[Rfam]
RNA sequence: UAUGAAACUCAUCAAAUGAGUAGUUCCCCAUUUAAGAGCUACCUUACCAUAUUCUAAAUUC
Numbered sequence: 001u002a003u004g005a006a007a008c009u010c011a012u013c014a015a016a017u018g019a020g021u022a023g024u025u026c027c028c029c030a031u032u033u034a035a036g037a038g039c040u041a042c043c044u045u046a047c048c049a050u051a052u053u054c055u056a057a058a059u060u061c
Stems, first nucleotide, its partner, number of pairs: 018044001020042007